The family of this 72-nucleotide RNA sequence from Caenorhabditis elegans is "mir-266 microRNA precursor family". It is one of the family's seed sequences. The source organism's lineage runs through Eukaryota, Metazoa, Eumetazoa, Rhabditina and Caenorhabditis.
[Rfam]
RNA sequence: GGGCAAAAGUUAGGCAAGACUUUGGCAAAGCUUGAAUCCAAGUUUUGCCAAAGUUUUGCCCAACUUUUGCCC
Numbered sequence: 001g002g003g004c005a006a007a008a009g010u011u012a013g014g015c016a017a018g019a020c021u022u023u024g025g026c027a028a029a030g031c032u033u034g035a036a037u038c039c040a041a042g043u044u045u046u047g048c049c050a051a052a053g054u055u056u057u058g059c060c061c062a063a064c065u066u067u068u069g070c071c072c
Stems, first nucleotide, its partner, number of pairs: 002071010013060002017056005024049002028045006